Shown here is an 80-nucleotide sequence from Erinaceus europaeus, a member of the family "mir-105 microRNA precursor family". Its family is annotated with biological_process, miRNA-mediated post-transcriptional gene silencing and RISC complex in the Gene Ontology. The match comes from Rfam's covariance-model search (69 bits). For this family Rfam cites "miRNPs: a novel class of ribonucleoproteins containing numerous microRNAs" (Mourelatos et al., Genes Dev, 2002).

[Rfam]
RNA sequence: UGCACACCGUGGUCAAAUGCUCAGGCUCCGUGGUAGUUGAUUAUGCACCACGGAUGUUUGAGCAUUUACAAUGGUGUCUA
Numbered sequence: 001u002g003c004a005c006a007c008c009g010u011g012g013u014c015a016a017a018u019g020c021u022c023a024g025g026c027u028c029c030g031u032g033g034u035a036g037u038u039g040a041u042u043a044u045g046c047a048c049c050a051c052g053g054a055u056g057u058u059u060g061a062g063c064a065u066u067u068a069c070a071a072u073g074g075u076g077u078c079u080a
Stems, first nucleotide, its partner, number of pairs: 004077007012069001015067001017065010027054003033051002036048001038047002